A member of the RNA family "Small nucleolar RNA SNORA11" from Myotis brandtii, 129 nucleotides long.
U107 (SNORA11) is a member of the H/ACA class of snoRNAs that guide the sites of modification of uridines to pseudouridines. This snoRNA was identified by RT-PCR from blood cells and its expression confirmed by Northern blot analysis.
[Rfam]
RNA sequence: UGGAUGUGGAGAGAGCAGAGUGCCUGAAGAAUGACUCCUCUGUGAUUAACACAUCCAACAGCAACUUGGGCUUACUCCUCACAGGUGGCAGAAUACUAUGACCUUCCUGUGACAUUAUGCCGUAUACAU
Numbered sequence: 001u002g003g004a005u006g007u008g009g010a011g012a013g014a015g016c017a018g019a020g021u022g023c024c025u026g027a028a029g030a031a032u033g034a035c036u037c038c039u040c041u042g043u044g045a046u047u048a049a050c051a052c053a054u055c056c057a058a059c060a061g062c063a064a065c066u067u068g069g070g071c072u073u074a075c076u077c078c079u080c081a082c083a084g085g086u087g088g089c090a091g092a093a094u095a096c097u098a099u100g101a102c103c104u105u106c107c108u109g110u111g112a113c114a115u116u117a118u119g120c121c122g123u124a125u126a127c128a129u
Stems, first nucleotide, its partner, number of pairs: 002056007015043006022035001024033001069121003076114001080111002083104003088099001090097002

NCBI's taxonomy places the organism under Eukaryota, Gnathostomata, Laurasiatheria, Yangochiroptera, Myotis. A search with the family's covariance model found it, with a score of 52 bits.